[Rfam]
Annotation
Shown here is a 47-nucleotide RNA, a member of the family "Glutamine riboswitch aptamer (glnA leader)". The literature on the family includes a 2011 paper in RNA Biol by Ames and Breaker, "Bacterial aptamers that selectively bind glutamine".
RNA sequence: GUCGUUCAUCCAUAAGGACGGAAGUAGGGAAACCGAAGGAACGCAUC
Number, nucleotide and partner (000 for none) at each position: 001g000002u000003c043004g042005u041006u040007c039008a000009u018010c017011c016012a000013u000014a000015a000016g011017g010018a009019c000020g000021g044022a000023a000024g000025u000026a000027g034028g033029g000030a000031a000032a000033c028034c027035g000036a000037a000038g000039g007040a006041a005042c004043g003044c021045a000046u000047c000